[Rfam]
RNA sequence: CGAGUCGUGCGGGCGGUCGCGUCGGUCCCGAGAGGGCACCGCCGAGGAACGUCCGGGCUCCACAGGGCAGGGUGGUAGGUAACGCCUACCUGGGGCGACCCACGGGAAAGUGCCACAGAAAGCAGACCGCCGGGGCCGUACGGCGCCCGGUAAGGGUGAAACGGUGGUGUAAGAGACCACCAGCGGCCAGGGUGACCUGGUCGGCUCGGUAAACCCCACCCGGAGCAAGGUCAAGAGAGGUCGUCGCCCCUCGCGGGCGGCGACUCGCGCGGAUGCUUGAGGGCUGCCCGCCCGAGUCCGCGGGUAGACCGCUGGAGGUCGCCGGUGACGGCGACCCUAGAUGGAUGGCCGCCUCCGGGCGGACCGCGAGGUCCACCCGAGACAGAACCCGGCGUAGAGCGCGACUCGUCUG
Number, nucleotide and partner (000 for none) at each position: 001c408002g407003a406004g405005u404006c403007g402008u401009g400010c399011g000012g353013g352014c351015g350016g349017u348018c347019g000020c044021g043022u000023c041024g040025g039026u038027c000028c036029c000030g000031a000032g000033a000034g000035g000036g028037c000038a026039c025040c024041g023042c000043c021044g020045a000046g000047g000048a000049a395050c394051g393052u000053c392054c391055g390056g389057g388058c225059u224060c223061c222062a000063c000064a000065g289066g288067g287068c286069a000070g221071g220072g219073u218074g217075g089076u088077a087078g086079g085080u000081a000082a000083c000084g000085c079086c078087u077088a076089c075090c104091u102092g101093g100094g099095g000096c000097g000098a000099c094100c093101c092102a091103c000104g090105g216106g215107a000108a000109a000110g214111u213112g210113c209114c208115a000116c000117a000118g000119a000120a000121a000122g000123c000124a000125g000126a000127c155128c154129g151130c150131c149132g148133g147134g146135g144136c143137c142138g000139u000140a000141c000142g137143g136144c135145g000146c134147c133148c132149g131150g130151u129152a000153a000154g128155g127156g000157u000158g000159a000160a000161a000162c000163g181164g180165u179166g178167g177168u176169g000170u000171a000172a000173g000174a000175g000176a168177c167178c166179a165180c164181c163182a000183g205184c203185g202186g201187c200188c199189a198190g197191g196192g000193u000194g000195a000196c191197c190198u189199g188200g187201u186202c185203g184204g000205c183206u000207c000208g114209g113210u112211a000212a000213a111214c110215c106216c105217c074218a073219c072220c071221c070222g061223g060224a059225g058226c000227a000228a000229g310230g309231u308232c307233a000234a000235g000236a000237g000238a000239g000240g000241u000242c000243g000244u000245c000246g000247c000248c000249c000250c000251u000252c000253g000254c000255g000256g000257g000258c000259g000260g000261c000262g000263a000264c000265u000266c000267g000268c000269g000270c000271g000272g000273a000274u000275g000276c000277u000278u000279g000280a000281g293282g292283g291284c290285u000286g068287c067288c066289c065290g284291c283292c282293c281294g000295a000296g000297u000298c000299c000300g000301c000302g000303g000304g000305u000306a000307g232308a231309c230310c229311g000312c000313u000314g000315g000316a000317g336318g335319u334320c333321g332322c331323c330324g329325g000326u000327g000328a000329c324330g323331g322332c321333g320334a319335c318336c317337c000338u000339a000340g000341a000342u000343g000344g000345a000346u000347g018348g017349c016350c015351g014352c013353c012354u000355c000356c000357g000358g000359g000360c000361g000362g000363a000364c000365c000366g000367c000368g000369a000370g000371g000372u000373c000374c000375a000376c000377c000378c000379g000380a000381g000382a000383c000384a000385g000386a000387a000388c057389c056390c055391g054392g053393c051394g050395u049396a000397g000398a000399g010400c009401g008402c007403g006404a005405c004406u003407c002408g001409u000410c000411u000412g000
Source information: Rfam assigns this 412-nucleotide sequence from Streptomyces oceani to the family "Bacterial RNase P class A". The match comes from Rfam's covariance-model search (271 bits). Rfam classes the family as a ribozyme. Lineage of the source: Bacteria > Bacillati > Actinomycetota > Actinomycetes > Streptomyces. Pairs were carried over by alignment from the consensus structure, which is taken from published work.